RNA sequence: AGAGAUUUUCAUCGCUGGCGGAAUCAGUGGAAGAACCACGGGGUGAUGAAAGUUUAGGAAUUAGCCGACCGUCUGGGCAACAUUU
Numbered sequence: 001a002g003a004g005a006u007u008u009u010c011a012u013c014g015c016u017g018g019c020g021g022a023a024u025c026a027g028u029g030g031a032a033g034a035a036c037c038a039c040g041g042g043g044u045g046a047u048g049a050a051a052g053u054u055u056a057g058g059a060a061u062u063a064g065c066c067g068a069c070c071g072u073c074u075g076g077g078c079a080a081c082a083u084u085u
Base pairs, nucleotide, nucleotide: 003055004054005053006052007051008050009049010048011047012046015043016042017073018072019071020070021069027039028038029037030036062080064078065077066076